Rfam assigns this 181-nucleotide RNA sequence from Medicago truncatula to the family "MIR2619 microRNA precursor family". The family's consensus secondary structure was predicted with RNAalifold. Lineage of the source: Eukaryota > Euphyllophyta > Fabales > Hologalegina > Medicago. Rfam links the family to the GO terms RISC complex and miRNA-mediated post-transcriptional gene silencing.

RNA sequence: AAACCGCCCCCUAAGUUUUGCAACUAUAUCAGUUUUGGCCUUUAAGGCCAAUUUUUGAUAAAAAAAAAUAAAAAAAACUAACACGUGGCACCUCACUUAGGGUGCCACGUCAGCGUUGACCGAGUCAAAAUUGGCCUUGGGGGUCAUAACUGCCACAAAUGCAAAACUUAUGGGGCGGUUU
Numbered sequence: 001a002a003a004c005c006g007c008c009c010c011c012u013a014a015g016u017u018u019u020g021c022a023a024c025u026a027u028a029u030c031a032g033u034u035u036u037g038g039c040c041u042u043u044a045a046g047g048c049c050a051a052u053u054u055u056u057g058a059u060a061a062a063a064a065a066a067a068a069u070a071a072a073a074a075a076a077a078c079u080a081a082c083a084c085g086u087g088g089c090a091c092c093u094c095a096c097u098u099a100g101g102g103u104g105c106c107a108c109g110u111c112a113g114c115g116u117u118g119a120c121c122g123a124g125u126c127a128a129a130a131u132u133g134g135c136c137u138u139g140g141g142g143g144u145c146a147u148a149a150c151u152g153c154c155a156c157a158a159a160u161g162c163a164a165a166a167c168u169u170a171u172g173g174g175g176c177g178g179u180u181u
Stems, first nucleotide, its partner, number of pairs: 001181002004178005012170011025157001027155001030152005036146010083110002086107007